[Rfam]
RNA sequence: CAGAAUACAUGAUGAUCUCAAACUUGAACUCUCUCACUGAUCACUUGAUGUUAGAAAAUAAGAUCUGAUAUUCUG
Number, nucleotide and partner (000 for none) at each position: 001c075002a074003g073004a072005a071006u070007a069008c000009a000010u000011g000012a000013u000014g000015a000016u000017c000018u000019c000020a000021a000022a000023c000024u000025u000026g000027a000028a000029c000030u000031c000032u000033c000034u000035c000036a000037c000038u000039g000040a000041u000042c000043a000044c000045u000046u000047g000048a000049u000050g000051u000052u000053a000054g000055a000056a000057a000058a000059u000060a000061a000062g000063a000064u000065c000066u000067g000068a000069u007070a006071u005072u004073c003074u002075g001
Small nucleolar RNA SNORD81: a 75-nucleotide RNA sequence from Erinaceus europaeus.
The base pairs follow the family's consensus structure, which was predicted with PFOLD.
The organism belongs to Erinaceus, within Eukaryota.
The literature on the family includes a 1998 paper in Mol Cell Biol by Smith and Steitz, "Classification of gas5 as a multi-small-nucleolar-RNA (snoRNA) host gene and a member of the 5'-terminal oligopyrimidine gene family reveals common features of snoRNA host genes".
By type it is a C/D-box small nucleolar RNA.